[Rfam]
Shown here is a 54-nucleotide sequence from Sclerocarya birrea, a member of the family "Plastid-ccsA-ndhD-2 3UTR RNA". The family has 421 seed sequences and 875 matches in Rfam 15.1. Plastid ccsA-ndhD-2 is a non-coding RNA (ncRNA) recognised in plastids. It was found in the three prime untranslated region (3UTR) of ccsA and ndhD genes, its 3UTR location suggests a role in transcript maturation. Lineage of the source: Eukaryota > Embryophyta > Mesangiospermae > rosids > Sclerocarya.
RNA sequence: UUGUGAGAACCUUUUGAAUCAAGUAGUGUAGGGAUUCAAAAGGUUCUCGGUGGC
Numbered sequence: 001u002u003g004u005g006a007g008a009a010c011c012u013u014u015u016g017a018a019u020c021a022a023g024u025a026g027u028g029u030a031g032g033g034a035u036u037c038a039a040a041a042g043g044u045u046c047u048c049g050g051u052g053g054c
Base pairs, nucleotide, nucleotide: 004049005048006047007046008045009044010043011042012041013040014039015038016037017036018035019034020033